Rfam assigns this 96-nucleotide RNA sequence from Hanguana malayana to the family "Plastid-rps12 3UTR RNA".
By type it is a cis-regulatory element.
Lineage of the source: Eukaryota > Embryophyta > Mesangiospermae > commelinids > Hanguana.
The family has 1,299 seed sequences and 1,710 matches in Rfam 15.1.
On this family, see Richter et al., Plant Commun 2023: "Retrograde signaling in plants: A critical review focusing on the GUN pathway and beyond".

[Rfam]
RNA sequence: GGUUUCUAUUGGUGCAAAUCCAAUCACCUAGAUUUGAGCUGAGAAACAAUUCUCUAUUGGUAGCAAAUAGUUGUCCAUUAAGCAGAGGAACUAGCA
Numbered sequence: 001g002g003u004u005u006c007u008a009u010u011g012g013u014g015c016a017a018a019u020c021c022a023a024u025c026a027c028c029u030a031g032a033u034u035u036g037a038g039c040u041g042a043g044a045a046a047c048a049a050u051u052c053u054c055u056a057u058u059g060g061u062a063g064c065a066a067a068u069a070g071u072u073g074u075c076c077a078u079u080a081a082g083c084a085g086a087g088g089a090a091c092u093a094g095c096a
Stems, first nucleotide, its partner, number of pairs: 009023004052087004056078002059075006